[Rfam]
RNA sequence: GAUGUUAAGUAGGCACUUGCAGGCAAAGUGACAUUCCGAUCGUUGACUGCUUUUUCCUACUUUACAUU
Numbered sequence: 001g002a003u004g005u006u007a008a009g010u011a012g013g014c015a016c017u018u019g020c021a022g023g024c025a026a027a028g029u030g031a032c033a034u035u036c037c038g039a040u041c042g043u044u045g046a047c048u049g050c051u052u053u054u055u056c057c058u059a060c061u062u063u064a065c066a067u068u
Stems, first nucleotide, its partner, number of pairs: 001068005007062007019050004024045003